[Rfam]
Nucleotides: 085
Stems, first nucleotide, its partner, number of pairs: 002082003007077001009075001011073004016068004023058008034042001
Number, partner (000 for none) and nucleotide at each position: 001000u002082a003081a004080g005000g006000u007077c008000a009075a010000u011073u012072g013071c014070u015000c016068u017067g018066a019065c020000g021000a022000u023058g024057u025056u026055g027054c028053a029052c030051u031000a032000c033000u034042g035000u036000a037000g038000c039000g040000u041000c042034c043000a044000u045000a046000c047000g048000a049000g050000c051030a052029g053028u054027g055026c056025a057024a058023u059000a060000g061000a062000a063000u064000u065019g066018u067017c068016a069000u070014a071013g072012c073011a074000u075009u076000g077007g078000g079000c080004c081003u082002u083000c084000g085000c

A member of the RNA family "mir-301 microRNA precursor family" from Albula goreensis, 85 nucleotides long. For this family Rfam cites "Embryonic stem cell-specific MicroRNAs" (Houbaviy et al., Dev Cell, 2003). A search with the family's covariance model found it, with a score of 75 bits. Rfam links the family to the GO terms RISC complex and miRNA-mediated post-transcriptional gene silencing. The organism belongs to Albula, within Eukaryota. Pairs were carried over by alignment from the consensus structure, which was predicted with WAR.